[Rfam]
RNA sequence: CAGGAGGAAGCCGAAAAUCCUUGAUUAGAGUAGGCC
Dot-bracket structure: .((((....[[[.....))))...........]]].

This 36-nucleotide RNA belongs to the Rfam family "DUF805b RNA". The family's RNA type in Rfam is cis-regulatory element.